[Rfam]
RNA: MIR398 microRNA precursor family
RNA sequence: GUUUACCUCAGAGGAGUGAAUCUGAGAGCACAAGGUGGAUUGGUUUGGACAGCUAUAUAUCAUGUAUUGGUAUCUAGUAUCUCUGUAUAAUAUGAAUUUACUUUGUGUUCUCAGGUCACCCCUUUGAGCCAACC
Numbered sequence: 001g002u003u004u005a006c007c008u009c010a011g012a013g014g015a016g017u018g019a020a021u022c023u024g025a026g027a028g029c030a031c032a033a034g035g036u037g038g039a040u041u042g043g044u045u046u047g048g049a050c051a052g053c054u055a056u057a058u059a060u061c062a063u064g065u066a067u068u069g070g071u072a073u074c075u076a077g078u079a080u081c082u083c084u085g086u087a088u089a090a091u092a093u094g095a096a097u098u099u100a101c102u103u104u105g106u107g108u109u110c111u112c113a114g115g116u117c118a119c120c121c122c123u124u125u126g127a128g129c130c131a132a133c134c
Stems, first nucleotide, its partner, number of pairs: 007128002011124004016119004024112018